RNA: Bacillaceae-1 RNA
Organism: Domibacillus mangrovi
RNA sequence: UAAACAGGAACUCAGGUAAAGAACGCCGCGUCCUGCGGCAAUACCUGAGUGACCAGG
Numbered sequence: 001u002a003a004a005c006a007g008g009a010a011c012u013c014a015g016g017u018a019a020a021g022a023a024c025g026c027c028g029c030g031u032c033c034u035g036c037g038g039c040a041a042u043a044c045c046u047g048a049g050u051g052a053c054c055a056g057g
Base pairs, nucleotide, nucleotide: 011049012048013047014046015045016044017043025039026038027037028036029035